Rfam assigns this 77-nucleotide RNA from Streptomyces klenkii to the family "nrdJ RNA". By type it is a small RNA.
[Rfam]
RNA sequence: ACCUGCCCGGUGCGCCGCGCGCCCGGGCGAAGAACAGACAUAGCGCGCCACGGAAGAAAUAGGCGCAUUAGGGCGUU
Numbered sequence: 001a002c003c004u005g006c007c008c009g010g011u012g013c014g015c016c017g018c019g020c021g022c023c024c025g026g027g028c029g030a031a032g033a034a035c036a037g038a039c040a041u042a043g044c045g046c047g048c049c050a051c052g053g054a055a056g057a058a059a060u061a062g063g064c065g066c067a068u069u070a071g072g073g074c075g076u077u
Base pairs, nucleotide, nucleotide: 004029005028006027007026008025009024010023012020013019014018045066046065047064048063049062050060